[Rfam]
RNA sequence: UUUGGGAAAUGAUGAAAAGAUAAAUACAGGCAAGCAGAGACUAGACUCCAAUGGGUGUCCUAUGCUGAAUGUUAUUGCACGUCAGUCUGAUCCCAAA
Numbered sequence: 001u002u003u004g005g006g007a008a009a010u011g012a013u014g015a016a017a018a019g020a021u022a023a024a025u026a027c028a029g030g031c032a033a034g035c036a037g038a039g040a041c042u043a044g045a046c047u048c049c050a051a052u053g054g055g056u057g058u059c060c061u062a063u064g065c066u067g068a069a070u071g072u073u074a075u076u077g078c079a080c081g082u083c084a085g086u087c088u089g090a091u092c093c094c095a096a097a
Stems, first nucleotide, its partner, number of pairs: 001097007
Shown here is a 97-nucleotide RNA from Protea cynaroides, a member of the family "Small nucleolar RNA Z122". A search with the family's covariance model found it, with a score of 60 bits. On this family, see Chen et al., Nucleic Acids Res 2003: "The high diversity of snoRNAs in plants: identification and comparative study of 120 snoRNA genes from Oryza sativa". Rfam links the family to the GO terms nucleolus and RNA processing. NCBI's taxonomy places the organism under Eukaryota, Embryophyta, Tracheophyta, Proteales, Protea.